[Rfam]
RNA sequence: CGAGCCGGCCGGGCGGUCGCGUCGGGGUCCCAGGAUCCCGCCGAGGAACGUCCGGGCUCCACAGAGCAGGAUGGUGGGUAACGCCCACCCGGGGUGACCCGCGGGACAGUGCCACAGAAAACAGACCGCCGGGGCCGCGAGGCUCCCGGUAAGGGUGAAACGGUGGUGUAAGAGACCACCAGCGCCCAGGGUGACCUGGGCGGCUAGGUAAACCCCAUCCGGAGCAAGGUCAAGAGGGGCCGUCGGCUGACGGCCCUGCGCGGAUGUCCGAGGGCUGCUCGCCCGAGUCCGCGGGUAGACCGCACGAGGCCGGUGGCAACACCGGCCCUAGAUGGAUGGCCGCCUCCCCCGGCGCCGCGAGGCUCCGGGGAGACAGAACCCGGCGUACAUGGCCGACUCGUCCG
Numbered sequence: 001c002g003a004g005c006c007g008g009c010c011g012g013g014c015g016g017u018c019g020c021g022u023c024g025g026g027g028u029c030c031c032a033g034g035a036u037c038c039c040g041c042c043g044a045g046g047a048a049c050g051u052c053c054g055g056g057c058u059c060c061a062c063a064g065a066g067c068a069g070g071a072u073g074g075u076g077g078g079u080a081a082c083g084c085c086c087a088c089c090c091g092g093g094g095u096g097a098c099c100c101g102c103g104g105g106a107c108a109g110u111g112c113c114a115c116a117g118a119a120a121a122c123a124g125a126c127c128g129c130c131g132g133g134g135c136c137g138c139g140a141g142g143c144u145c146c147c148g149g150u151a152a153g154g155g156u157g158a159a160a161c162g163g164u165g166g167u168g169u170a171a172g173a174g175a176c177c178a179c180c181a182g183c184g185c186c187c188a189g190g191g192u193g194a195c196c197u198g199g200g201c202g203g204c205u206a207g208g209u210a211a212a213c214c215c216c217a218u219c220c221g222g223a224g225c226a227a228g229g230u231c232a233a234g235a236g237g238g239g240c241c242g243u244c245g246g247c248u249g250a251c252g253g254c255c256c257u258g259c260g261c262g263g264a265u266g267u268c269c270g271a272g273g274g275c276u277g278c279u280c281g282c283c284c285g286a287g288u289c290c291g292c293g294g295g296u297a298g299a300c301c302g303c304a305c306g307a308g309g310c311c312g313g314u315g316g317c318a319a320c321a322c323c324g325g326c327c328c329u330a331g332a333u334g335g336a337u338g339g340c341c342g343c344c345u346c347c348c349c350c351g352g353c354g355c356c357g358c359g360a361g362g363c364u365c366c367g368g369g370g371a372g373a374c375a376g377a378a379c380c381c382g383g384c385g386u387a388c389a390u391g392g393c394c395g396a397c398u399c400g401u402c403c404g
Stems, first nucleotide, its partner, number of pairs: 001400004006395005011388001012344007020043002023040006048386003052383005057224004064280004069220005074088005089103001090101004104215002109213002111209003126154002128150005133144004162180006182204001183202008228301004272284004308327008
Rfam assigns this 404-nucleotide RNA sequence from Streptomyces daliensis to the family "Bacterial RNase P class A". The match comes from Rfam's covariance-model search (272 bits). About the family: Ribonuclease P (RNase P) is a ubiquitous endoribonuclease, found in archaea, bacteria and eukarya as well as chloroplasts and mitochondria. Lineage of the source: Bacteria > Actinomycetota > Actinomycetes > Kitasatosporales > Streptomyces. The base pairs follow the family's consensus structure, which is taken from published work. Gene Ontology terms of the family: dimeric ribonuclease P complex, tRNA processing and ribonuclease P activity.